Rfam assigns this 93-nucleotide RNA from Lentibacillus cibarius to the family "Selenocysteine transfer RNA".
RNA sequence: GGGGUCGGCUGAGGUACUGGUGUUCUCCUUGGUCUUCAAAACCAUUUGGGAGGCGCGUGUCGUCUCCGGUGGGUUCGAUUCCCACACGAUCCC
Numbered sequence: 001g002g003g004g005u006c007g008g009c010u011g012a013g014g015u016a017c018u019g020g021u022g023u024u025c026u027c028c029u030u031g032g033u034c035u036u037c038a039a040a041a042c043c044a045u046u047u048g049g050g051a052g053g054c055g056c057g058u059g060u061c062g063u064c065u066c067c068g069g070u071g072g073g074u075u076c077g078a079u080u081c082c083c084a085c086a087c088g089a090u091c092c093c
Stems, first nucleotide, its partner, number of pairs: 001093007008085001011027003016023002030044004049067005070084004